[Rfam]
RNA sequence: AUCAACUUAUACGACUGACGGAAGUGGAGUUUACCACAGGGAGUAUAAGGGUUCGAGAGCCGACCGUCUGGGCAGAUUAU
Dot-bracket structure: .....(((((((..(([[[[[..((((......)))).))..))))))).........(((..]]]]]..))).......
Numbered sequence: 001a002u003c004a005a006c007u008u009a010u011a012c013g014a015c016u017g018a019c020g021g022a023a024g025u026g027g028a029g030u031u032u033a034c035c036a037c038a039g040g041g042a043g044u045a046u047a048a049g050g051g052u053u054c055g056a057g058a059g060c061c062g063a064c065c066g067u068c069u070g071g072g073c074a075g076a077u078u079a080u
Stems, first nucleotide, its partner, number of pairs: 006049007015040002017068005024037004059073003
Shown here is an 80-nucleotide RNA sequence from Anaerosacchariphilus hominis, a member of the family "ZMP/ZTP riboswitch aptamer (pfl RNA motif)". Lineage of the source: Bacteria > Bacillati > Bacillota > Clostridia > Anaerosacchariphilus. The match comes from Rfam's covariance-model search (58 bits). A reference for the family is Tran et al. (2020), "Parallel Discovery Strategies Provide a Basis for Riboswitch Ligand Design", Cell Chem Biol.